[Rfam]
RNA sequence: AUGUAGUGUAGCAUGCCCGUUUGGUGCUUAACUUUGAUGAAUAUGUUAUAUUUAAUUACUUUUGGGUAACGGGGUGUUACAAUCA
Numbered sequence: 001a002u003g004u005a006g007u008g009u010a011g012c013a014u015g016c017c018c019g020u021u022u023g024g025u026g027c028u029u030a031a032c033u034u035u036g037a038u039g040a041a042u043a044u045g046u047u048a049u050a051u052u053u054a055a056u057u058a059c060u061u062u063u064g065g066g067u068a069a070c071g072g073g074g075u076g077u078u079a080c081a082a083u084c085a
Stems, first nucleotide, its partner, number of pairs: 004085001005083001007081008016073006
RNA: MIR2617 microRNA precursor family